Annotation: A member of the RNA family "Ribosomal protein L20 leader" from Pontibacillus halophilus, 129 nucleotides long. Its family is annotated with regulation of gene expression in the Gene Ontology. The organism belongs to Pontibacillus halophilus, within Bacteria. This family is a putative r-protein leader autoregulatory structure found in B. subtilis and other low-GC Gram-positive bacteria.

[Rfam]
RNA sequence: UGAGACAAGUAGAAGCACCCGCUUCUCACCUGAUUGACACUUUCUUAGUAGUUGACAGGUCCGCUCAUUAUUAUUUAAUAUGAACGGGACGCGUGUGGGUGCAGUAUGUACCGACACUUUUUUAAUGCA
Numbered sequence: 001u002g003a004g005a006c007a008a009g010u011a012g013a014a015g016c017a018c019c020c021g022c023u024u025c026u027c028a029c030c031u032g033a034u035u036g037a038c039a040c041u042u043u044c045u046u047a048g049u050a051g052u053u054g055a056c057a058g059g060u061c062c063g064c065u066c067a068u069u070a071u072u073a074u075u076u077a078a079u080a081u082g083a084a085c086g087g088g089a090c091g092c093g094u095g096u097g098g099g100u101g102c103a104g105u106a107u108g109u110a111c112c113g114a115c116a117c118u119u120u121u122u123u124a125a126u127g128c129a
Stems, first nucleotide, its partner, number of pairs: 011026006028060003036053003039049002094116003098112006